[Rfam]
The family of this 630-nucleotide RNA is "ROOL RNA". From the family's description: Firmicutes, Fusobacteria (1 example), Tenericutes (1 example). Rfam's curators put it in the seed alignment. Pairs were carried over by alignment from the consensus structure, which is taken from published work. The family's RNA type in Rfam is small RNA.
RNA sequence: AAAAUGGAUAUGUUUUUUGAUAACUCAGUGCAGAUUGGAUGCGAUGUCCAAGCUGAGACGCGACCGAAAGACGCUCGGAGGACACGAACGACGGAUACGUUGGGAUACCUGACCGCACUAUAUCGGGUGACCGUUAUAGCGAACCUCUGUCGAGGGAAAGUAAAGGCGCGGUGCUGAUGUUAUCGCAAGCAAAGGCAUCCGUGGAGUCGCGGGGGCAAUAGACAGCCUUGUGAAUAGCGAGGCCGAAUCCAAGUUAGGGGAGACGAGUGGUGUCGCACCCAAACCUUGGAAAUACCACCAACCCCGUUUGCGGUGAUGUCAUGGAAACAUGGCUAUAAGACUCUACAGAAUCCGAGUAGCGGAAUCGCAUUGACUUGAUAUGAUGAAGAGAUGGGCUGAAUAGUGUCAAUUUGGUCAAAACUUUCUGAAUAUCCCGUGAAAGGUAGAGGUAACCAUCCCUUUGGCGGCAUUGUGCGAAUGUGUGCUGUUCUGAUAUGGGAUAGCGCAAUAAGCUUGGGCAAGAAGUGUAUGGAGGACGCUCUGUAUGCUCAGACUUGUCUACCGCAUGGCUGAAUAUGCUUGAAGAUAACUUGAGGUAAGGUGAAGACCUAUCAAACAAACGUAUUCAUU
Numbered sequence: 001a002a003a004a005u006g007g008a009u010a011u012g013u014u015u016u017u018u019g020a021u022a023a024c025u026c027a028g029u030g031c032a033g034a035u036u037g038g039a040u041g042c043g044a045u046g047u048c049c050a051a052g053c054u055g056a057g058a059c060g061c062g063a064c065c066g067a068a069a070g071a072c073g074c075u076c077g078g079a080g081g082a083c084a085c086g087a088a089c090g091a092c093g094g095a096u097a098c099g100u101u102g103g104g105a106u107a108c109c110u111g112a113c114c115g116c117a118c119u120a121u122a123u124c125g126g127g128u129g130a131c132c133g134u135u136a137u138a139g140c141g142a143a144c145c146u147c148u149g150u151c152g153a154g155g156g157a158a159a160g161u162a163a164a165g166g167c168g169c170g171g172u173g174c175u176g177a178u179g180u181u182a183u184c185g186c187a188a189g190c191a192a193a194g195g196c197a198u199c200c201g202u203g204g205a206g207u208c209g210c211g212g213g214g215g216c217a218a219u220a221g222a223c224a225g226c227c228u229u230g231u232g233a234a235u236a237g238c239g240a241g242g243c244c245g246a247a248u249c250c251a252a253g254u255u256a257g258g259g260g261a262g263a264c265g266a267g268u269g270g271u272g273u274c275g276c277a278c279c280c281a282a283a284c285c286u287u288g289g290a291a292a293u294a295c296c297a298c299c300a301a302c303c304c305c306g307u308u309u310g311c312g313g314u315g316a317u318g319u320c321a322u323g324g325a326a327a328c329a330u331g332g333c334u335a336u337a338a339g340a341c342u343c344u345a346c347a348g349a350a351u352c353c354g355a356g357u358a359g360c361g362g363a364a365u366c367g368c369a370u371u372g373a374c375u376u377g378a379u380a381u382g383a384u385g386a387a388g389a390g391a392u393g394g395g396c397u398g399a400a401u402a403g404u405g406u407c408a409a410u411u412u413g414g415u416c417a418a419a420a421c422u423u424u425c426u427g428a429a430u431a432u433c434c435c436g437u438g439a440a441a442g443g444u445a446g447a448g449g450u451a452a453c454c455a456u457c458c459c460u461u462u463g464g465c466g467g468c469a470u471u472g473u474g475c476g477a478a479u480g481u482g483u484g485c486u487g488u489u490c491u492g493a494u495a496u497g498g499g500a501u502a503g504c505g506c507a508a509u510a511a512g513c514u515u516g517g518g519c520a521a522g523a524a525g526u527g528u529a530u531g532g533a534g535g536a537c538g539c540u541c542u543g544u545a546u547g548c549u550c551a552g553a554c555u556u557g558u559c560u561a562c563c564g565c566a567u568g569g570c571u572g573a574a575u576a577u578g579c580u581u582g583a584a585g586a587u588a589a590c591u592u593g594a595g596g597u598a599a600g601g602u603g604a605a606g607a608c609c610u611a612u613c614a615a616a617c618a619a620a621c622g623u624a625u626u627c628a629u630u
Stems, first nucleotide, its partner, number of pairs: 007627002013620003017616002024057005035051005059170004064166002076115003079110003083104001089102005116141001118139005124133003144155004181589001188581002194577001195571001198349002201346008209307006228240004248290006258280003264275003268297004309369004318333005353442001359437004364432001424553004446462004464565003467513001517560002521556002525549001527546003531542004599610004
Dot-bracket structure: ......((....(((.((.....(((((......(((((.......))))).))))).((((.((..........((((((.(.....(((((....))))).)...)))..)))(.(((((.(((....))).))))).)..((((....)))).........))))))..........(......((....((..((.((((((((((((((.............((((.....)))).......((((((....(((...(((.[[[[.)))..)))....))))))...]]]]....)))))).[[[[.....(((((......))))).....)))))))).))...(.....((((.(.]]]]......................................................[[[[....).))))....)...((((.........)))).((((.............................................)...((..((..(.(((.((((....)))).)))..)]]]].))..))..))).....).....)..)).......).........((((....))))....)).))).....))...